[Rfam]
RNA: Fluoride riboswitch aptamer (crcB RNA motif)
RNA sequence: UAUAAAAUAGGUGAUGGAGUUCACCUUAACUAUUGUGAUUUUGCAAUUAAUGACUCCUACUUAGAG
Numbered sequence: 001u002a003u004a005a006a007a008u009a010g011g012u013g014a015u016g017g018a019g020u021u022c023a024c025c026u027u028a029a030c031u032a033u034u035g036u037g038a039u040u041u042u043g044c045a046a047u048u049a050a051u052g053a054c055u056c057c058u059a060c061u062u063a064g065a066g
Base pairs, nucleotide, nucleotide: 010025011024012023013022016057017056018055019054020053021052032047033046034045035044036043037042